[Rfam]
RNA sequence: CGUCAUGAGAUCCGGCGCGAAGCCCUGGCUUGCCGGACAGCAACCCUCUUUCACAGUGGGGUGCUCCAGGUGACGACAAGGUCGCACACCAUCCGGUGCGCGGCAAGUGUGAGUU
Numbered sequence: 001c002g003u004c005a006u007g008a009g010a011u012c013c014g015g016c017g018c019g020a021a022g023c024c025c026u027g028g029c030u031u032g033c034c035g036g037a038c039a040g041c042a043a044c045c046c047u048c049u050u051u052c053a054c055a056g057u058g059g060g061g062u063g064c065u066c067c068a069g070g071u072g073a074c075g076a077c078a079a080g081g082u083c084g085c086a087c088a089c090c091a092u093c094c095g096g097u098g099c100g101c102g103g104c105a106a107g108u109g110u111g112a113g114u115u
Base pairs, nucleotide, nucleotide: 002077003076004075009038011037012036013035014034015033016032021030022029039065040064041063044061045060046059048056049055081104082103083102084101085100087098088097089096090095
Dot-bracket structure: .(((....(.((((((....((......)).)))))))(((..(((.((.....))..))).))).........)))...(((((.((((....)))).)))))...........